The record is a 284-nucleotide RNA sequence from Metarhizium album, which matches "A. fumigatus sRNA Afu_309" in Rfam.

[Rfam]
RNA sequence: UUCUUCUUCCCAAUUACGGAUCUGUGCCCAGCGGUCCCUUGCUCCCUUGCUUUUGCGGAAGUCCAAGGUCGAUUGCUGUGCAGCUCGAUAAUCUAUGGAGCCAUCAACUCGCUAUGGUGUCAAUGUCCUAUCGACAGGUCCAAGAAUGACUGGUAUAGCCGUCCGGAUCGGUCGUCGAAAGAUGACUUGAGCCAGGCGGUUGCCAAAGGCUUCAUAUUCCGCCCCUUUUUUCCGAGACCGUCGGUCCGUGAGGUUGAGGCAAACCAUGAAGCAUGACUACAUUC
Numbered sequence: 001u002u003c004u005u006c007u008u009c010c011c012a013a014u015u016a017c018g019g020a021u022c023u024g025u026g027c028c029c030a031g032c033g034g035u036c037c038c039u040u041g042c043u044c045c046c047u048u049g050c051u052u053u054u055g056c057g058g059a060a061g062u063c064c065a066a067g068g069u070c071g072a073u074u075g076c077u078g079u080g081c082a083g084c085u086c087g088a089u090a091a092u093c094u095a096u097g098g099a100g101c102c103a104u105c106a107a108c109u110c111g112c113u114a115u116g117g118u119g120u121c122a123a124u125g126u127c128c129u130a131u132c133g134a135c136a137g138g139u140c141c142a143a144g145a146a147u148g149a150c151u152g153g154u155a156u157a158g159c160c161g162u163c164c165g166g167a168u169c170g171g172u173c174g175u176c177g178a179a180a181g182a183u184g185a186c187u188u189g190a191g192c193c194a195g196g197c198g199g200u201u202g203c204c205a206a207a208g209g210c211u212u213c214a215u216a217u218u219c220c221g222c223c224c225c226u227u228u229u230u231u232c233c234g235a236g237a238c239c240g241u242c243g244g245u246c247c248g249u250g251a252g253g254u255u256g257a258g259g260c261a262a263a264c265c266a267u268g269a270a271g272c273a274u275g276a277c278u279a280c281a282u283u284c
Stems, first nucleotide, its partner, number of pairs: 018141008026081002029078003033074004037068005043061001047058004089133001091131002096122003100118003153203003159199005170187004175182002208277001210275001211270005225259004232253002236246004
Pairs were carried over by alignment from the consensus structure, which was predicted with WAR. The family has 10 seed sequences and 663 matches in Rfam 15.1. A reference for the family is Jochl et al. (2008), "Small ncRNA transcriptome analysis from Aspergillus fumigatus suggests a novel mechanism for regulation of protein synthesis", Nucleic Acids Res.